[Rfam]
RNA: SAM riboswitch aptamer (S box leader)
Organism: Cohnella sp. OV330
RNA sequence: AUCUUAUCAAGAGCAGGCGGAGGGACUAGCCCGAUGAAGCCCGGCAACCGGCGUAGCGUACGCACGGUGCUAAUUCUUGCGAUGACGUCCGUUUGCGGACGUUUCUGGGAGAUGAGAG
Numbered sequence: 001a002u003c004u005u006a007u008c009a010a011g012a013g014c015a016g017g018c019g020g021a022g023g024g025a026c027u028a029g030c031c032c033g034a035u036g037a038a039g040c041c042c043g044g045c046a047a048c049c050g051g052c053g054u055a056g057c058g059u060a061c062g063c064a065c066g067g068u069g070c071u072a073a074u075u076c077u078u079g080c081g082a083u084g085a086c087g088u089c090c091g092u093u094u095g096c097g098g099a100c101g102u103u104u105c106u107g108g109g110a111g112a113u114g115a116g117a118g
Stems, first nucleotide, its partner, number of pairs: 002117007013042001016041003022032003026079001028077002043071004048067002051063003075110001080107002